[Rfam]
Nucleotides: 064
Stems, first nucleotide, its partner, number of pairs: 001064005015050003019046005029039003
Number, partner (000 for none) and nucleotide at each position: 001064g002063u003062u004061g005060c006000a007000u008000u009000a010000a011000u012000g013000a014000a015050g016049g017048c018000c019046a020045a021044a022043g023042c024000a025000g026000a027000a028000a029039c030038u031037a032000c033000a034000a035000a036000a037031u038030a039029g040000g041000g042023g043022c044021u045020u046019u047000u048017g049016u050015c051000u052000g053000a054000u055000a056000a057000c058000u059000u060005g061004c062003a063002a064001u